[Rfam]
Shown here is a 113-nucleotide sequence, a member of the family "Hairpin ribozyme 1 from viruses-like metatranscriptomes". Pairs were carried over by alignment from the consensus structure, which is taken from published work.
RNA sequence: UCGCUGUGGUUUAUGGUAAAGCCUUAAUUGGCACAUAGGCUGAAGCGAGUGAGGGAAACAUGUAAUUGUGAGUGGUUGAUUUCAACUGCUACCAUUGCAGUAAAUUAACUCAC
Dot-bracket structure: ((((....(((((((.....(((......))).)))))))....))))(((((.......((((((...........................)))))).........)))))
Numbered sequence: 001u002c003g004c005u006g007u008g009g010u011u012u013a014u015g016g017u018a019a020a021g022c023c024u025u026a027a028u029u030g031g032c033a034c035a036u037a038g039g040c041u042g043a044a045g046c047g048a049g050u051g052a053g054g055g056a057a058a059c060a061u062g063u064a065a066u067u068g069u070g071a072g073u074g075g076u077u078g079a080u081u082u083c084a085a086c087u088g089c090u091a092c093c094a095u096u097g098c099a100g101u102a103a104a105u106u107a108a109c110u111c112a113c
Stems, first nucleotide, its partner, number of pairs: 001048004009040007021032003049113005061099006
The sequence is in the family's curated seed alignment.
On this family, see Weinberg et al., Nucleic Acids Res 2021: "Identification of over 200-fold more hairpin ribozymes than previously known in diverse circular RNAs".